Shown here is a 103-nucleotide RNA from Limnohabitans sp. B9-3, a member of the family "TPP riboswitch aptamer (THI element)". Lineage of the source: Bacteria > Pseudomonadati > Pseudomonadota > Betaproteobacteria > Limnohabitans. It scores 60 bits against the family's covariance model.
RNA sequence: CGCAUUCGCUAGGGGUGUUGAAGCCGUCACCGACUUCGACUGAGAAAGUCCCUUUGAACCUGAUUGAGGUAAUCCUCGCGCAGGGAAGCUGGUCUACACAGAG
Numbered sequence: 001c002g003c004a005u006u007c008g009c010u011a012g013g014g015g016u017g018u019u020g021a022a023g024c025c026g027u028c029a030c031c032g033a034c035u036u037c038g039a040c041u042g043a044g045a046a047a048g049u050c051c052c053u054u055u056g057a058a059c060c061u062g063a064u065u066g067a068g069g070u071a072a073u074c075c076u077c078g079c080g081c082a083g084g085g086a087a088g089c090u091g092g093u094c095u096a097c098a099c100a101g102a103g
Base pairs, nucleotide, nucleotide: 006091008089009088010087011053012052013051014050016047017040018039019038020037021036022035023034059084060083061082062081065078066077067076068075
Notes:
From the family's description: Vitamin B(1) in its active form thiamin pyrophosphate (TPP) is an essential coenzyme that is synthesised by coupling of pyrimidine and thiazole moieties in bacteria.